RNA: c-di-GMP-I riboswitch aptamer
Organism: Sinobaca qinghaiensis
RNA sequence: UUCAGAAAAAGGCUACGCUGUUGAAAAGCAGUUUCGCAAAGUUACAGGUCUAAGGCAUAUCAUGCUAAGACGGCUGGACCGCCUGG
Dot-bracket structure: ...........((...((((((....))))))...))...(((.((((((....((((...))))...)))..)))))).......